The record is a 77-nucleotide sequence from Strongylus vulgaris, which matches "mir-83 microRNA precursor family" in Rfam. For this family Rfam cites "The microRNAs of Caenorhabditis elegans" (Lim et al., Genes Dev, 2003). Rfam links the family to the GO terms miRNA-mediated post-transcriptional gene silencing and RISC complex. The base pairs follow the family's consensus structure, which was predicted with RNAalifold.
[Rfam]
RNA sequence: CGAGUCACAAUCCUGAAUUUAUUUGCGAGCUGGACAAUAUCAGGAUCUAGCACCAUGUAAAUUCAGCAUUUUGGCUC
Numbered sequence: 001c002g003a004g005u006c007a008c009a010a011u012c013c014u015g016a017a018u019u020u021a022u023u024u025g026c027g028a029g030c031u032g033g034a035c036a037a038u039a040u041c042a043g044g045a046u047c048u049a050g051c052a053c054c055a056u057g058u059a060a061a062u063u064c065a066g067c068a069u070u071u072u073g074g075c076u077c
Stems, first nucleotide, its partner, number of pairs: 013066010024055002027053001030050002033047002035044001